Nucleotides: 116
Stems, first nucleotide, its partner, number of pairs: 003053004010046003026041001029038001071109004078102004
Number, partner (000 for none) and nucleotide at each position: 001000u002000g003053g004052u005051c006050a007000u008000u009000a010046c011045c012044a013000a014000g015000g016000c017000u018000u019000u020000u021000a022000a023000a024000a025000u026041g027000c028000c029038a030000u031000u032000u033000c034000u035000g036000a037000u038029u039000u040000a041026c042000u043000g044012u045011g046010g047000a048000c049000u050006u051005g052004a053003c054000u055000a056000u057000a058000a059000a060000a061000a062000a063000a064000a065000a066000a067000a068000c069000u070000u071109c072108c073107c074106a075000c076000u077000a078102g079101g080100u081099u082000c083000u084000a085000c086000c087000u088000u089000g090000a091000u092000g093000g094000c095000a096000u097000u098000c099081a100080a101079c102078c103000g104000u105000u106074u107073g108072g109071g110000a111000a112000c113000a114000u115000u116000g